Rfam assigns this 600-nucleotide part of an RNA from Knoellia aerolata to the family "Bacterial large subunit ribosomal RNA". Its Rfam clan is "LSU clan". A search with the family's covariance model found it, with a score of 2821 bits.
[Rfam]
RNA sequence: GGGCGCACGGUGGAUGCCUUGGCACCAGGAACCGAAGAAGGACGUAGGAAUCUGCGAUAAGCCACGGGGAGUCGAUAACCAGACUAUGAUCCGUGGAUUUCCGAAUGGGGAAACCCGGCUGGAGGCAAGUCCAGUCACUCCUGCCUGAAUAUAUAGGGCAGGUAGAGGGAACGUGGGGAAGUGAAACAUCUCAGUACCCACAGGAAGAGAAAGCAACCGCGAUUCCGUGAGUAUUGGCGAGAGAAAGCGGAUGAGGCUAAACCGAUCAUGUGUGAUAGCUGUCAGGCGUUGCAUGGUCGGGGUCGUGGGACCUCUCAGUCAGGACUGACAUCCUGGCAUGGAGUCAAAAAUUCGCGUUAUAGUCGAAGGGCAUUGAAAGGCCCGGCACAGAGGGUGCGACCCCCGUAGACGAAAUGACGCGAACUCCAGAGAGUCAUCCCAAGUAAUACGGGGCCCGAGAAAUCCCGUAUGAAUCUGGCGGGACCACCCGCUAAGCCUAAAUAUUCCCUGGUGACCGAUAGCGGACAAGUACCGUGAGGGAAAGGUGAAAAGUACCCCGGGAGGGGAGUGAAAUAGAUCCUGAAACCGUGUGCCUACAAU
Numbered sequence: 001g002g003g004c005g006c007a008c009g010g011u012g013g014a015u016g017c018c019u020u021g022g023c024a025c026c027a028g029g030a031a032c033c034g035a036a037g038a039a040g041g042a043c044g045u046a047g048g049a050a051u052c053u054g055c056g057a058u059a060a061g062c063c064a065c066g067g068g069g070a071g072u073c074g075a076u077a078a079c080c081a082g083a084c085u086a087u088g089a090u091c092c093g094u095g096g097a098u099u100u101c102c103g104a105a106u107g108g109g110g111a112a113a114c115c116c117g118g119c120u121g122g123a124g125g126c127a128a129g130u131c132c133a134g135u136c137a138c139u140c141c142u143g144c145c146u147g148a149a150u151a152u153a154u155a156g157g158g159c160a161g162g163u164a165g166a167g168g169g170a171a172c173g174u175g176g177g178g179a180a181g182u183g184a185a186a187c188a189u190c191u192c193a194g195u196a197c198c199c200a201c202a203g204g205a206a207g208a209g210a211a212a213g214c215a216a217c218c219g220c221g222a223u224u225c226c227g228u229g230a231g232u233a234u235u236g237g238c239g240a241g242a243g244a245a246a247g248c249g250g251a252u253g254a255g256g257c258u259a260a261a262c263c264g265a266u267c268a269u270g271u272g273u274g275a276u277a278g279c280u281g282u283c284a285g286g287c288g289u290u291g292c293a294u295g296g297u298c299g300g301g302g303u304c305g306u307g308g309g310a311c312c313u314c315u316c317a318g319u320c321a322g323g324a325c326u327g328a329c330a331u332c333c334u335g336g337c338a339u340g341g342a343g344u345c346a347a348a349a350a351u352u353c354g355c356g357u358u359a360u361a362g363u364c365g366a367a368g369g370g371c372a373u374u375g376a377a378a379g380g381c382c383c384g385g386c387a388c389a390g391a392g393g394g395u396g397c398g399a400c401c402c403c404c405g406u407a408g409a410c411g412a413a414a415u416g417a418c419g420c421g422a423a424c425u426c427c428a429g430a431g432a433g434u435c436a437u438c439c440c441a442a443g444u445a446a447u448a449c450g451g452g453g454c455c456c457g458a459g460a461a462a463u464c465c466c467g468u469a470u471g472a473a474u475c476u477g478g479c480g481g482g483a484c485c486a487c488c489c490g491c492u493a494a495g496c497c498u499a500a501a502u503a504u505u506c507c508c509u510g511g512u513g514a515c516c517g518a519u520a521g522c523g524g525a526c527a528a529g530u531a532c533c534g535u536g537a538g539g540g541a542a543a544g545g546u547g548a549a550a551a552g553u554a555c556c557c558c559g560g561g562a563g564g565g566g567a568g569u570g571a572a573a574u575a576g577a578u579c580c581u582g583a584a585a586c587c588g589u590g591u592g593c594c595u596a597c598a599a600u
Stems, first nucleotide, its partner, number of pairs: 001595010016580001017545002021516002023513007030505002032168002040102003043056003062096007071084003107116003117136007138165002140162007172203001173201005183190002213220002223501001224251005234242002254498004262300011307440003312433004349425001351423010362410003368383004386390001392404003446470008477492005532539002555566004